A member of the RNA family "mir-399 microRNA precursor family" from Paspalum vaginatum, 90 nucleotides long. It scores 63 bits against the family's covariance model. Gene Ontology terms of the family: RISC complex and miRNA-mediated post-transcriptional gene silencing. A reference for the family is Jones-Rhoades and Bartel (2004), "Computational Identification of Plant MicroRNAs and Their Targets, Including a Stress-Induced miRNA", Mol Cell. The base pairs follow the family's consensus structure, which was predicted with PFOLD. mir-399 was identified in both Arabidopsis thaliana and Oryza sativa computationally and was later experimentally verified. mir-399 is thought to target mRNAs coding for a phosphatase transporter. The mature sequence is excised from the 3' arm of the hairpin. Taxonomically the source falls in Paspalum (Eukaryota, Euphyllophyta, Liliopsida, commelinids).

RNA sequence: CCAUGCAUUACGGGGUGUGUCUCCUUUGGCAGUGACCUAUAGCUGAUGGGCGCAGACAUUGCCAAAGGAGAUUUGCCCAGCAAUGCAUGC
Numbered sequence: 001c002c003a004u005g006c007a008u009u010a011c012g013g014g015g016u017g018u019g020u021c022u023c024c025u026u027u028g029g030c031a032g033u034g035a036c037c038u039a040u041a042g043c044u045g046a047u048g049g050g051c052g053c054a055g056a057c058a059u060u061g062c063c064a065a066a067g068g069a070g071a072u073u074u075g076c077c078c079a080g081c082a083a084u085g086c087a088u089g090c
Stems, first nucleotide, its partner, number of pairs: 005086005011080001013078005019072001021070004027064008